[Rfam]
RNA sequence: UAGCAUAACAGAGGUCGCGGCUGUUCAACAGUAGCGCGGGGAGGGCUCCGGUGGCCCCUGGAACCGCUGCGAAAGGGGACGCCGCCGAAGGAGCCCGGUCCACGGAAGCCCCGCUCCUGGUCGCCCGGCGAAGAGCCGUCCGACUGUCGCCGCGCGCCGCGGUGGAGCGCUGUCUGCUUU
Numbered sequence: 001u002a003g004c005a006u007a008a009c010a011g012a013g014g015u016c017g018c019g020g021c022u023g024u025u026c027a028a029c030a031g032u033a034g035c036g037c038g039g040g041g042a043g044g045g046c047u048c049c050g051g052u053g054g055c056c057c058c059u060g061g062a063a064c065c066g067c068u069g070c071g072a073a074a075g076g077g078g079a080c081g082c083c084g085c086c087g088a089a090g091g092a093g094c095c096c097g098g099u100c101c102a103c104g105g106a107a108g109c110c111c112c113g114c115u116c117c118u119g120g121u122c123g124c125c126c127g128g129c130g131a132a133g134a135g136c137c138g139u140c141c142g143a144c145u146g147u148c149g150c151c152g153c154g155c156g157c158c159g160c161g162g163u164g165g166a167g168c169g170c171u172g173u174c175u176g177c178u179u180u
Stems, first nucleotide, its partner, number of pairs: 008173004017085005023080004034070002036067004089118006097110003119145005126138004147165007
Rfam assigns this 180-nucleotide sequence from Lawsonibacter hominis to the family "Lysine riboswitch aptamer". Pairs were carried over by alignment from the consensus structure, which is taken from published work. On this family, see Mandal et al., Cell 2003: "Riboswitches Control Fundamental Biochemical Pathways in Bacillus subtilis and Other Bacteria".